[Rfam]
RNA: Cyano-1 RNA
RNA sequence: AUGGAUGUGAGGAGUUGCCUAGCACUGAAAAGCCCCUGGAGUCGAAACACGGACAGACGCCCAGGGGCUUUUCCAU
Numbered sequence: 001a002u003g004g005a006u007g008u009g010a011g012g013a014g015u016u017g018c019c020u021a022g023c024a025c026u027g028a029a030a031a032g033c034c035c036c037u038g039g040a041g042u043c044g045a046a047a048c049a050c051g052g053a054c055a056g057a058c059g060c061c062c063a064g065g066g067g068c069u070u071u072u073c074c075a076u
Base pairs, nucleotide, nucleotide: 029071030070031069032068033067036064037063038062039061041058042057043056